[Rfam]
RNA sequence: GAAGAGCUCUGCGUCGAAGGGCUAGCGACCCACGGCGACCCCGAGUCAUGCGUCGACGUCCCGCGAGGGCGUGGCGAAGCGUUGACAGGGGCACGUGCAGGCCGGGCUAUGGAGCCGCGAAAUGAAGCAUCCGGGGUGCCCACGCUGUACAAGAGGCGGAAGGCCACACUACUGGCGGCGCUAUCGCGAGUCGUCGGUGGACCCUGCGCGGUCAAAGAACC
Numbered sequence: 001g002a003a004g005a006g007c008u009c010u011g012c013g014u015c016g017a018a019g020g021g022c023u024a025g026c027g028a029c030c031c032a033c034g035g036c037g038a039c040c041c042c043g044a045g046u047c048a049u050g051c052g053u054c055g056a057c058g059u060c061c062c063g064c065g066a067g068g069g070c071g072u073g074g075c076g077a078a079g080c081g082u083u084g085a086c087a088g089g090g091g092c093a094c095g096u097g098c099a100g101g102c103c104g105g106g107c108u109a110u111g112g113a114g115c116c117g118c119g120a121a122a123u124g125a126a127g128c129a130u131c132c133g134g135g136g137u138g139c140c141c142a143c144g145c146u147g148u149a150c151a152a153g154a155g156g157c158g159g160a161a162g163g164c165c166a167c168a169c170u171a172c173u174g175g176c177g178g179c180g181c182u183a184u185c186g187c188g189a190g191u192c193g194u195c196g197g198u199g200g201a202c203c204c205u206g207c208g209c210g211g212u213c214a215a216a217g218a219a220c221c
Base pairs, nucleotide, nucleotide: 012037013036014035015034016033019031020030021029023189025187026186039091040090041089042088045086046085047084048083049081050080051076052075053074054073056072057071058070059069060068061067112213114212115211116210117209118208119207132206133205134204135203136202137201138164139163140162143158144157145156146155169200170199171198172197173196174195175194176193177192178191179190
Annotation:
Shown here is a 221-nucleotide RNA sequence from Parafrankia sp. EAN1pec, a member of the family "Group II catalytic intron D1-D4-6". Rfam's curators put it in the seed alignment. About the family: Group II introns are found in rRNA, tRNA and mRNA of organelles in fungi, plants and protists, and also in mRNA in bacteria. Taxonomically the source falls in Parafrankia (Bacteria, Bacillati, Actinomycetota, Frankiales). For this family Rfam cites "The ins and outs of group II introns" (Bonen and Vogel, Trends Genet, 2001). Rfam 15.1 lists 1,617 matches to the family in 661 species.